[Rfam]
RNA sequence: AUACCUUUUUCGGAUCUGUUCUUAUCAGUUUAAUAUCUGAUAUGUGGACUACAUGUCCACAAUGAUAUUAAAUUUAUUUUUUAUGGGGAGGGUUCACCACACUAGCUUGCUAGGGGUCCGUCAUGUGUCGCCUAGGUGUUGCACUAUUGUCUAGGCCGGCGUACCUCAA
Numbered sequence: 001a002u003a004c005c006u007u008u009u010u011c012g013g014a015u016c017u018g019u020u021c022u023u024a025u026c027a028g029u030u031u032a033a034u035a036u037c038u039g040a041u042a043u044g045u046g047g048a049c050u051a052c053a054u055g056u057c058c059a060c061a062a063u064g065a066u067a068u069u070a071a072a073u074u075u076a077u078u079u080u081u082u083a084u085g086g087g088g089a090g091g092g093u094u095c096a097c098c099a100c101a102c103u104a105g106c107u108u109g110c111u112a113g114g115g116g117u118c119c120g121u122c123a124u125g126u127g128u129c130g131c132c133u134a135g136g137u138g139u140u141g142c143a144c145u146a147u148u149g150u151c152u153a154g155g156c157c158g159g160c161g162u163a164c165c166u167c168a169a
Stems, first nucleotide, its partner, number of pairs: 023042006044060006088122002091119002094116002102113004125162006132154006
The family of this 169-nucleotide RNA from Aegilops tauschii is "U2 spliceosomal RNA".
The source organism's lineage runs through Eukaryota, Streptophyta, Spermatophyta, Triticeae and Aegilops tauschii.
Rfam links the family to the GO terms mRNA branch site recognition, pre-mRNA branch point binding and U2 snRNP.